[Rfam]
RNA sequence: AAGUGCUUUGUCAAGAAAGCCUAAAAAAAUCUUGACCAAUCGCCCCUUUGGCAAGAGGGUAGAGCGAUUUCCCUGAAAGGCAAAUCAUGGCACUAAGGGAGAUACCUGUAAGGGUCGGUUGUAAAGAAAACGAUUUAUCAAUCGUAGUAUAUGGUGGCAUGCAAUCAUGCGAACAUCGAGGAUCCAGUCAGACCGAUGUAAAACAAAUAAUGGCGGGGGGAUUAGCACACUUCCUGAGAUAGCGUGAUAGGCU
Numbered sequence: 001a002a003g004u005g006c007u008u009u010g011u012c013a014a015g016a017a018a019g020c021c022u023a024a025a026a027a028a029a030u031c032u033u034g035a036c037c038a039a040u041c042g043c044c045c046c047u048u049u050g051g052c053a054a055g056a057g058g059g060u061a062g063a064g065c066g067a068u069u070u071c072c073c074u075g076a077a078a079g080g081c082a083a084a085u086c087a088u089g090g091c092a093c094u095a096a097g098g099g100a101g102a103u104a105c106c107u108g109u110a111a112g113g114g115u116c117g118g119u120u121g122u123a124a125a126g127a128a129a130a131c132g133a134u135u136u137a138u139c140a141a142u143c144g145u146a147g148u149a150u151a152u153g154g155u156g157g158c159a160u161g162c163a164a165u166c167a168u169g170c171g172a173a174c175a176u177c178g179a180g181g182a183u184c185c186a187g188u189c190a191g192a193c194c195g196a197u198g199u200a201a202a203a204c205a206a207a208u209a210a211u212g213g214c215g216g217g218g219g220g221a222u223u224a225g226c227a228c229a230c231u232u233c234c235u236g237a238g239a240u241a242g243c244g245u246g247a248u249a250g251g252c253u
Stems, first nucleotide, its partner, number of pairs: 010036006037121003044114005056107003067103008130145004157170005174198005214236007
Notes
A member of the RNA family "EGFOA-assoc-1 RNA", 253 nucleotides long. The sequence is in the family's curated seed alignment.